[Rfam]
Background:
Shown here is a 57-nucleotide sequence from Symplocos paniculata, a member of the family "Plastid-ccsA-ndhD-1 3UTR RNA". Rfam classes the family as a cis-regulatory element. Clan: Plastid-ccsA_ndhD 3UTR RNA clan. Lineage of the source: Eukaryota > Streptophytina > Magnoliopsida > Symplocaceae > Symplocos. Pairs were carried over by alignment from the consensus structure, which was predicted with LocARNA. A reference for the family is Zandueta-Criado and Bock (2004), "Surprising features of plastid ndhD transcripts: addition of non-encoded nucleotides and polysome association of mRNAs with an unedited start codon", Nucleic Acids Res.

RNA sequence: UAAGCCGGCGAGAACCAUUUGAAUCAGACAGUGUAGCGAUUCACAUGGUUCUCACAA
Number, nucleotide and partner (000 for none) at each position: 001u000002a000003a000004g000005c000006c000007g000008g055009c000010g053011a052012g051013a050014a049015c048016c047017a046018u045019u000020u043021g042022a041023a040024u039025c038026a000027g000028a000029c000030a000031g000032u000033g000034u000035a000036g000037c000038g025039a024040u023041u022042c021043a020044c000045a018046u017047g016048g015049u014050u013051c012052u011053c010054a000055c008056a000057a000
It is one of the family's seed sequences.